[Rfam]
RNA sequence: AAAAUGGACCCAAAGGCGGUAUUUGGUAUUUCCAAAAUAUUUAAUAGGGAAUAAUAUAAUGUAUUGACAUUUU
Numbered sequence: 001a002a003a004a005u006g007g008a009c010c011c012a013a014a015g016g017c018g019g020u021a022u023u024u025g026g027u028a029u030u031u032c033c034a035a036a037a038u039a040u041u042u043a044a045u046a047g048g049g050a051a052u053a054a055u056a057u058a059a060u061g062u063a064u065u066g067a068c069a070u071u072u073u
Stems, first nucleotide, its partner, number of pairs: 001073006010026005027053007

Source information
Mitochondrion-encoded tmRNA: a 73-nucleotide RNA from Phytophthora boehmeriae. On this family, see Hafez et al., RNA Biol 2013: "A second eukaryotic group with mitochondrion-encoded tmRNA: in silico identification and experimental confirmation". Gene Ontology term of the family: RNA catabolic process.